[Rfam]
Rfam assigns this 523-nucleotide sequence from Brasilonema sennae to the family "Bacterial RNase P class A". Rfam describes the family as follows. Ribonuclease P (RNase P) is a ubiquitous endoribonuclease, found in archaea, bacteria and eukarya as well as chloroplasts and mitochondria. By type it is a ribozyme. The organism belongs to Brasilonema sennae, within Bacteria.

RNA sequence: AGAGUAGGCGCAGGUGGUUACAGACUAGUUUCGUUGAAACUGGUUUGAGGAAAGUCCGGGCUCCCGAAAGACCAGACUUGCUGGGUAACUCCCAGUGCGAGCGAUCGCGAGGAUAGUGCCACAGAAACAUACCGCCCUUUUUCAGUCAACAGUCAACAGUCAACAGUCAACAGUAAACAGUGAACAGUGAACAAGGGGUGGACGAGUCCGUUUCCUACCUUAUAACUGAUAACUGGUAACUGAUAACUGGUAACUGAUAAAUGGUAACUGAAGAGGGUAAGGGUGCAAAGGUGCGGUAAGAGCGCACCAGCAUGAUCGAGAGAUCAUGGCUCGGUAAACCCCGGUUGGGAGCAAGGUGAAGGAACUACGGUUGGUCUUUUACCAGUUCCGCUCUCAUAAGAUCCGCUAGAGGCGUUUGGUAACAAGCGUCCCAGAUAGAUAACCGCCCUCUUAAAUCUAGAAACGUAAUAUGUUACGUUUCUAUAAAAGAGAACAGAACCCGGCUUACGUUCCGACUCUCUCU
Numbered sequence: 001a002g003a004g005u006a007g008g009c010g011c012a013g014g015u016g017g018u019u020a021c022a023g024a025c026u027a028g029u030u031u032c033g034u035u036g037a038a039a040c041u042g043g044u045u046u047g048a049g050g051a052a053a054g055u056c057c058g059g060g061c062u063c064c065c066g067a068a069a070g071a072c073c074a075g076a077c078u079u080g081c082u083g084g085g086u087a088a089c090u091c092c093c094a095g096u097g098c099g100a101g102c103g104a105u106c107g108c109g110a111g112g113a114u115a116g117u118g119c120c121a122c123a124g125a126a127a128c129a130u131a132c133c134g135c136c137c138u139u140u141u142u143c144a145g146u147c148a149a150c151a152g153u154c155a156a157c158a159g160u161c162a163a164c165a166g167u168c169a170a171c172a173g174u175a176a177a178c179a180g181u182g183a184a185c186a187g188u189g190a191a192c193a194a195g196g197g198g199u200g201g202a203c204g205a206g207u208c209c210g211u212u213u214c215c216u217a218c219c220u221u222a223u224a225a226c227u228g229a230u231a232a233c234u235g236g237u238a239a240c241u242g243a244u245a246a247c248u249g250g251u252a253a254c255u256g257a258u259a260a261a262u263g264g265u266a267a268c269u270g271a272a273g274a275g276g277g278u279a280a281g282g283g284u285g286c287a288a289a290g291g292u293g294c295g296g297u298a299a300g301a302g303c304g305c306a307c308c309a310g311c312a313u314g315a316u317c318g319a320g321a322g323a324u325c326a327u328g329g330c331u332c333g334g335u336a337a338a339c340c341c342c343g344g345u346u347g348g349g350a351g352c353a354a355g356g357u358g359a360a361g362g363a364a365c366u367a368c369g370g371u372u373g374g375u376c377u378u379u380u381a382c383c384a385g386u387u388c389c390g391c392u393c394u395c396a397u398a399a400g401a402u403c404c405g406c407u408a409g410a411g412g413c414g415u416u417u418g419g420u421a422a423c424a425a426g427c428g429u430c431c432c433a434g435a436u437a438g439a440u441a442a443c444c445g446c447c448c449u450c451u452u453a454a455a456u457c458u459a460g461a462a463a464c465g466u467a468a469u470a471u472g473u474u475a476c477g478u479u480u481c482u483a484u485a486a487a488a489g490a491g492a493a494c495a496g497a498a499c500c501c502g503g504c505u506u507a508c509g510u511u512c513c514g515a516c517u518c519u520c521u522c523u
Stems, first nucleotide, its partner, number of pairs: 001519005007513002010510001013447007021047009052506003056503005061351004070378002075346003079343002081095005096110001097108004111341002116339002118335003132282002134278009290308006310330001311328007355404002361389006369383003373379001411430008